The family of this 79-nucleotide sequence from Myotis brandtii is "mir-9198 microRNA precursor family". Pairs were carried over by alignment from the consensus structure, which was predicted with RNAalifold. It scores 92 bits against the family's covariance model. Gene Ontology terms of the family: RISC complex and miRNA-mediated post-transcriptional gene silencing. Taxonomically the source falls in Myotis (Eukaryota, Euteleostomi, Boreoeutheria, Laurasiatheria).

RNA sequence: GCUGCCACUCGCACCCGCUGCCAGCACCCAGCGCCGGUCCUGAUCUCUUGGUGCUGUCAGUGGGUGUAAGCAGCAGCUG
Numbered sequence: 001g002c003u004g005c006c007a008c009u010c011g012c013a014c015c016c017g018c019u020g021c022c023a024g025c026a027c028c029c030a031g032c033g034c035c036g037g038u039c040c041u042g043a044u045c046u047c048u049u050g051g052u053g054c055u056g057u058c059a060g061u062g063g064g065u066g067u068a069a070g071c072a073g074c075a076g077c078u079g
Stems, first nucleotide, its partner, number of pairs: 004074002008070002011067010022056007